[Rfam]
The family of this 217-nucleotide RNA sequence from Actinomadura craniellae is "Actinobacteria sRNA Ms_IGR-5".
Rfam classes the family as a small RNA.
RNA sequence: ACGCGCGAAAGGAGGUGGUCCACCAGCAUGUAUGGCAAACGGACUCGCGAGGUGGCUGUCCGCUAGUCGCCGUCCCGCCUCGGUCAGCCGCUCCGGCGGCAACGCACCGGUCGCGACGGCGACCGGCGAUUACCAGGCAGACACCCGGUCCCCGGACGGGUGGGCUUAGUCCAGCCCACCGCCCCGCCGACGGCGGGAGGUCCGGGGGCCGUUCAUU
Numbered sequence: 001a002c003g004c005g006c007g008a009a010a011g012g013a014g015g016u017g018g019u020c021c022a023c024c025a026g027c028a029u030g031u032a033u034g035g036c037a038a039a040c041g042g043a044c045u046c047g048c049g050a051g052g053u054g055g056c057u058g059u060c061c062g063c064u065a066g067u068c069g070c071c072g073u074c075c076c077g078c079c080u081c082g083g084u085c086a087g088c089c090g091c092u093c094c095g096g097c098g099g100c101a102a103c104g105c106a107c108c109g110g111u112c113g114c115g116a117c118g119g120c121g122a123c124c125g126g127c128g129a130u131u132a133c134c135a136g137g138c139a140g141a142c143a144c145c146c147g148g149u150c151c152c153c154g155g156a157c158g159g160g161u162g163g164g165c166u167u168a169g170u171c172c173a174g175c176c177c178a179c180c181g182c183c184c185c186g187c188c189g190a191c192g193g194c195g196g197g198a199g200g201u202c203c204g205g206g207g208g209c210c211g212u213u214c215a216u217u
Stems, first nucleotide, its partner, number of pairs: 014060006061128004066123002069120004076115003146211012160179006